[Rfam]
RNA sequence: AGUUUUCACCGGGGUAUUUCCUCCUCCCAUUCUCCUCGGUGAUAUAAAGACCGAAAUUCCUCCUCCCAUUUCGGUCUUCCCCUAAAUGGCACCCGUCGCUCCUCCCGCGCCGGGUGCUAUUU
Numbered sequence: 001a002g003u004u005u006u007c008a009c010c011g012g013g014g015u016a017u018u019u020c021c022u023c024c025u026c027c028c029a030u031u032c033u034c035c036u037c038g039g040u041g042a043u044a045u046a047a048a049g050a051c052c053g054a055a056a057u058u059c060c061u062c063c064u065c066c067c068a069u070u071u072c073g074g075u076c077u078u079c080c081c082c083u084a085a086a087u088g089g090c091a092c093c094c095g096u097c098g099c100u101c102c103u104c105c106c107g108c109g110c111c112g113g114g115u116g117c118u119a120u121u122u
Base pairs, nucleotide, nucleotide: 007041008040009039011037012036013035014034016031047078048077049076050075051074052073053072054071055070089117090116091115092114093113094112095111097109098108099107
Alphaproteobacterial ar14: a 122-nucleotide RNA sequence from Brucella gallinifaecis. For this family Rfam cites "A survey of sRNA families in alpha-proteobacteria" (del Val et al., RNA Biol, 2012). Smr14C2 was renamed NfeR1 (Nodule Formation Efficiency RNA) highly expressed in salt stress and during the symbiotic interaction on legume roots. Rfam 15.1 lists 784 matches to the family in 332 species. NCBI's taxonomy places the organism under Bacteria, Pseudomonadati, Pseudomonadota, Alphaproteobacteria, Brucella. The base pairs follow the family's consensus structure.